[Rfam]
Nucleotides: 073
Base pairs, nucleotide, nucleotide: 001054002053003052004051005050006049007048008047011021012020027044028043029042030041035073036072037071038070039069040068
Number, partner (000 for none) and nucleotide at each position: 001054c002053a003052a004051c005050a006049g007048g008047c009000u010000a011021g012020a013000c014000c015000g016000a017000u018000c019000a020012u021011c022000g023000a024000a025000a026000a027044g028043c029042g030041g031000a032000a033000a034000u035073g036072c037071c038070u039069u040068g041030c042029c043028g044027c045000c046000u047008g048007c049006c050005u051004g052003u053002u054001g055000a056000u057000u058000u059000a060000c061000a062000u063000a064000c065000a066000u067000u068040c069039a070038a071037g072036g073035c
Record summary: The record is a 73-nucleotide RNA, which matches "int-alpA RNA" in Rfam. The sequence is in the family's curated seed alignment. Rfam 15.1 lists 577 matches to the family in 491 species. Pairs were carried over by alignment from the consensus structure, which is taken from published work.